[Rfam]
RNA sequence: GGGCUAAUGAUGGAAAAAUCACUGGAAAGGAAUGACAUGAACAAAGGAACCGCUGAAGUGC
Numbered sequence: 001g002g003g004c005u006a007a008u009g010a011u012g013g014a015a016a017a018a019u020c021a022c023u024g025g026a027a028a029g030g031a032a033u034g035a036c037a038u039g040a041a042c043a044a045a046g047g048a049a050c051c052g053c054u055g056a057a058g059u060g061c
Base pairs, nucleotide, nucleotide: 001061003059004058005057
Shown here is a 61-nucleotide RNA from Callithrix jacchus, a member of the family "Small nucleolar RNA SNORD42". Rfam classes the family as a C/D-box small nucleolar RNA. snoRNA U42 is found in intron 3 of the ribosomal protein L23a (RPL23a) gene in humans and is also present in mice. A reference for the family is Galardi et al. (2002), "Purified box C/D snoRNPs are able to reproduce site-specific 2'-O-methylation of target RNA in vitro", Mol Cell Biol. Lineage of the source: Eukaryota > Teleostomi > Eutheria > Primates > Callithrix.